[Rfam]
RNA sequence: GUGGGGUACGGGGACAUGUACCCUAUAACUAUUGGGGGCAAAAUUGUGGGCUCGCUGUGCGCUAUUGCCGGCGUGUUGACGAUUGCUCUACCAGUACCUGUGAUUGUUUCCAAC
Numbered sequence: 001g002u003g004g005g006g007u008a009c010g011g012g013g014a015c016a017u018g019u020a021c022c023c024u025a026u027a028a029c030u031a032u033u034g035g036g037g038g039c040a041a042a043a044u045u046g047u048g049g050g051c052u053c054g055c056u057g058u059g060c061g062c063u064a065u066u067g068c069c070g071g072c073g074u075g076u077u078g079a080c081g082a083u084u085g086c087u088c089u090a091c092c093a094g095u096a097c098c099u100g101u102g103a104u105u106g107u108u109u110c111c112a113a114c
Stems, first nucleotide, its partner, number of pairs: 001114002004111002008107004014101003018097004037077004049063003

A member of the RNA family "Potassium channel RNA editing signal" from Erpetoichthys calabaricus, 114 nucleotides long. By type it is a cis-regulatory element. Rfam links the family to the GO term adenosine to inosine editing.